The record is a 179-nucleotide RNA from Companilactobacillus tucceti, which matches "Lysine riboswitch aptamer" in Rfam. Rfam describes the family as follows. Riboswitches are metabolite binding domains within certain messenger RNAs that serve as precision sensors for their corresponding targets. The match comes from Rfam's covariance-model search (98 bits). Lineage of the source: Bacteria > Bacillota > Lactobacillales > Companilactobacillus > Companilactobacillus tucceti.

[Rfam]
Nucleotides: 179
Base pairs, nucleotide, nucleotide: 007173008172009171010170011169016085017084018083020081021080022079023078024077032070033069034068035067036066037065038064039063089119090118091117092116093114094113095112097110098109099108100107120146121145124142125141126140127139128138129137130136149163150162151161152160153159154158
Number, partner (000 for none) and nucleotide at each position: 001000u002000a003000a004000u005000c006000a007173g008172a009171u010170a011169g012000a013000g014000g015000u016085g017084c018083a019000u020081u021080u022079u023078c024077a025000a026000u027000u028000a029000g030000u031000c032070a033069c034068a035067u036066u037065u038064u039063u040000c041000g042000a043000g044000u045000a046000c047000g048000u049000u050000a051000g052000g053000g054000u055000a056000c057000u058000u059000u060000g061000a062000c063039a064038a065037a066036a067035a068034u069033g070032u071000a072000a073000a074000a075000g076000g077024u078023g079022a080021a081020a082000u083018u084017g085016c086000c087000g088000a089119a090118a091117c092116g093114a094113a095112c096000u097110c098109g099108c100107c101000c102000c103000u104000a105000a106000u107100g108099g109098u110097g111000u112095g113094u114093u115000u116092u117091g118090u119089u120146g121145g122000g123000a124142c125141g126140u127139u128138a129137c130136u131000u132000a133000a134000u135000a136130a137129g138128u139127a140126g141125c142124g143000g144000a145121c146120u147000g148000u149163c150162g151161c152160a153159a154158u155000u156000u157000a158154a159153u160152u161151g162150c163149g164000u165000u166000g167000a168000g169011c170010u171009a172008u173007u174000g175000a176000u177000c178000a179000u